[Rfam]
RNA: ylbH leader
RNA sequence: AAAAUUAAUUGAGCGCCCUAUUGCUAGGGCGCUCUCAUGGGAGAGGAGAAACCGGACGAAGAGCUUAUGGGGAAACGUAAGUCUUCUCCGCGG
Numbered sequence: 001a002a003a004a005u006u007a008a009u010u011g012a013g014c015g016c017c018c019u020a021u022u023g024c025u026a027g028g029g030c031g032c033u034c035u036c037a038u039g040g041g042a043g044a045g046g047a048g049a050a051a052c053c054g055g056a057c058g059a060a061g062a063g064c065u066u067a068u069g070g071g072g073a074a075a076c077g078u079a080a081g082u083c084u085u086c087u088c089c090g091c092g093g
Stems, first nucleotide, its partner, number of pairs: 011034009035041002053090004058086004063082005